[Rfam]
Nucleotides: 072
Stems, first nucleotide, its partner, number of pairs: 001017003036057009
Number, partner (000 for none) and nucleotide at each position: 001017c002016c003015c004000g005000c006000a007000c008000g009000c010000c011000c012000a013000u014000a015003g016002g017001g018000c019000g020000u021000u022000u023000c024000c025000u026000c027000c028000c029000u030000a031000a032000a033000c034000u035000u036057g037056g038055g039054c040053c041052g042051u043050g044049c045000a046000a047000u048000u049044g050043c051042a052041c053040g054039g055038c056037c057036u058000u059000u060000u061000u062000u063000u064000u065000u066000c067000g068000c069000c070000u071000g072000c
Makes More Granules Regulator RNA (mmgR): a 72-nucleotide RNA sequence from Denitrobaculum tricleocarpae. Pairs were carried over by alignment from the consensus structure. The family's RNA type in Rfam is small RNA. The literature on the family includes a 2005 paper in Genome Biol by Corbino et al., "Evidence for a second class of S-adenosylmethionine riboswitches and other regulatory RNA motifs in alpha-proteobacteria". Lineage of the source: Bacteria > Pseudomonadati > Alphaproteobacteria > Rhodospirillales > Denitrobaculum. Rfam 15.1 lists 1,791 matches to the family in 918 species.